[Rfam]
RNA sequence: GAGAGGGACUCCUGUCGCAGGAGAGAUGGCGCCUACUACCAUCAAUGAGCCAUUGUUGUUCCAUUAUUGAGUUGGUAAGCUUCGUCUCUCCUCGACUGAAGUCCUUUUCAAU
Numbered sequence: 001g002a003g004a005g006g007g008a009c010u011c012c013u014g015u016c017g018c019a020g021g022a023g024a025g026a027u028g029g030c031g032c033c034u035a036c037u038a039c040c041a042u043c044a045a046u047g048a049g050c051c052a053u054u055g056u057u058g059u060u061c062c063a064u065u066a067u068u069g070a071g072u073u074g075g076u077a078a079g080c081u082u083c084g085u086c087u088c089u090c091c092u093c094g095a096c097u098g099a100a101g102u103c104c105u106u107u108u109c110a111a112u
Base pairs, nucleotide, nucleotide: 005104006103007102009101010100012098014096015095016094017093019092020091021090023088024087025086026085027084028083029082
The family of this 112-nucleotide RNA sequence from Gossypium raimondii is "MIR5225 microRNA precursor family". Rfam links the family to the GO terms miRNA-mediated post-transcriptional gene silencing and RISC complex.